[Rfam]
RNA sequence: ACGGUGUUCCGCUGCAAAGGCAAUUUGUGCAUGAGCAUCUG
Numbered sequence: 001a002c003g004g005u006g007u008u009c010c011g012c013u014g015c016a017a018a019g020g021c022a023a024u025u026u027g028u029g030c031a032u033g034a035g036c037a038u039c040u041g
Stems, first nucleotide, its partner, number of pairs: 003039007013031004018026001
RNA: Ribosomal protein L19 leader